[Rfam]
RNA sequence: CCGAUUAGUCUAUCUCUUGCCGGGCCUUCCUCAAGACCCUAAGCACAAUUUUUGGGCACCCGUCGCAGCAACGGCGGGUGA
Numbered sequence: 001c002c003g004a005u006u007a008g009u010c011u012a013u014c015u016c017u018u019g020c021c022g023g024g025c026c027u028u029c030c031u032c033a034a035g036a037c038c039c040u041a042a043g044c045a046c047a048a049u050u051u052u053u054g055g056g057c058a059c060c061c062g063u064c065g066c067a068g069c070a071a072c073g074g075c076g077g078g079u080g081a
Base pairs, nucleotide, nucleotide: 022039023038024037026035027034028033057080058079059078060077061076062075063074064073065072
RNA: SmY spliceosomal RNA